[Rfam]
RNA sequence: AUGCCGGAAGUGAGAAUUGGAUAAAACUAAAUUAAUGGUUAUUUUUAUUACGAGCGGCGUUCAAUUUAGUUUUCUCCAAUAUCUCACAUCCGACCU
Number, nucleotide and partner (000 for none) at each position: 001a000002u000003g000004c000005c092006g091007g090008a089009a000010g000011u086012g085013a084014g083015a000016a080017u079018u078019g077020g076021a075022u000023a073024a072025a071026a070027c069028u068029a067030a066031a000032u064033u063034a000035a000036u000037g000038g000039u000040u000041a000042u000043u000044u000045u000046u000047a000048u000049u000050a000051c000052g000053a000054g000055c000056g000057g000058c000059g000060u000061u000062c000063a033064a032065u000066u030067u029068a028069g027070u026071u025072u024073u023074c000075u021076c020077c019078a018079a017080u016081a000082u000083c014084u013085c012086a011087c000088a000089u008090c007091c006092g005093a000094c000095c000096u000
RNA: MIR2275 microRNA precursor family
Organism: Macleaya cordata